[Rfam]
RNA sequence: UUCAACAGAUCGGGAGAACUGGGAAACCAGUGCCGAAGGAGCAACCGCCCCGGAAACUCUCAGGCCCAAGGACCGAUCAGGGACA
Number, nucleotide and partner (000 for none) at each position: 001u000002u000003c000004a000005a000006c080007a000008g078009a077010u076011c075012g074013g073014g000015a000016g000017a000018a000019c030020u029021g028022g027023g000024a000025a000026a000027c022028c021029a020030g019031u000032g065033c064034c063035g061036a060037a000038g000039g059040a058041g057042c000043a000044a000045c053046c052047g000048c000049c000050c000051c000052g046053g045054a000055a000056a000057c041058u040059c039060u036061c035062a000063g034064g033065c032066c000067c000068a000069a000070g000071g000072a000073c013074c012075g011076a010077u009078c008079a000080g006081g000082g000083a000084c000085a000
Rfam assigns this 85-nucleotide RNA sequence from Thalassovita taeanensis to the family "Glycine riboswitch aptamer".
Pairs were carried over by alignment from the consensus structure.
Rfam's curators write: This family represents the bacterial glycine riboswitch. Glycine riboswitches usually consist of two metabolite-binding aptamers domains with similar structures in tandem. The aptamers cooperatively bind glycine to regulate the expression of downstream genes. In Bacillus subtilis, this riboswitch is found upstream of the gcvT operon which controls glycine degradation.